RNA sequence: GGGAUGUGUUCAGAACAGGGGUCCUGAAGAAAUGACCUCUCUGUUUACAACACACCCAACAGGAAUCUGGGUUCAUGGUGACAAGGGGCACAAAACUCGUGGCCUUCCUGUGAACAAAUACCCAACAGGU
Numbered sequence: 001g002g003g004a005u006g007u008g009u010u011c012a013g014a015a016c017a018g019g020g021g022u023c024c025u026g027a028a029g030a031a032a033u034g035a036c037c038u039c040u041c042u043g044u045u046u047a048c049a050a051c052a053c054a055c056c057c058a059a060c061a062g063g064a065a066u067c068u069g070g071g072u073u074c075a076u077g078g079u080g081a082c083a084a085g086g087g088g089c090a091c092a093a094a095a096c097u098c099g100u101g102g103c104c105u106u107c108c109u110g111u112g113a114a115c116a117a118a119u120a121c122c123c124a125a126c127a128g129g130u
Base pairs, nucleotide, nucleotide: 002057003056005054006053007052008051013046014045015044016043017042018041019040020039021038024034070123071122073120078115079114082112083111085105086104087103089101090100091099093097